[Rfam]
RNA sequence: GAUUCAUUGGUUUUUAUCAGUCAACCCAUCAGAAGCUGAUAAAAACACGUGAGUUUUCAAUGGCUUCAUUAACGUAUUGUUUCGCAGUGCUUGACACCGAAGCAAUACGUUUUUUU
Dot-bracket structure: .((((((..((((((((((((.............))))))))))))..))))))................((((((((((((((..(((.....))))))))))))))))).....
RNA: 23S methyl RNA motif
Organism: Alkalibacterium sp. AK22